[Rfam]
RNA sequence: UCUUCAUAACGCCUCCGAGUCCGAUUCCGCCUAAAGGAACUUCCCAAGGCCGUCGGACCGACGGGUUCUCCCGGAAACGGGGGGGCCUCCCGUGAUCGGAAAGGAGGGAUCGAGGGCUCCAG
Number, nucleotide and partner (000 for none) at each position: 001u000002c000003u116004u115005c000006a000007u000008a000009a000010c000011g000012c107013c106014u105015c104016c103017g000018a000019g058020u057021c056022c055023g054024a053025u052026u000027c000028c000029g050030c049031c048032u000033a000034a000035a000036g044037g043038a042039a000040c000041u000042u038043c037044c036045c000046a000047a000048g031049g030050c029051c000052g025053u024054c023055g022056g021057a020058c019059c000060g000061a000062c000063g088064g087065g086066u085067u084068c083069u082070c081071c080072c079073g078074g000075a000076a000077a000078c073079g072080g071081g070082g069083g068084g067085g066086c065087c064088u063089c099090c098091c000092g000093u000094g000095a000096u000097c000098g090099g089100a000101a000102a000103g016104g015105a014106g013107g012108g000109a000110u000111c000112g000113a000114g000115g004116g003117c000118u000119c000120c000121a000122g000
Shown here is a 122-nucleotide RNA sequence from Aminithiophilus ramosus, a member of the family "Molybdenum/Tungsten riboswitch aptamer (Moco RNA motif)". A reference for the family is Regulski et al. (2008), "in molybdenum cofactor and tungsten cofactor metabolism", Mol Microbiol. The match comes from Rfam's covariance-model search (65 bits).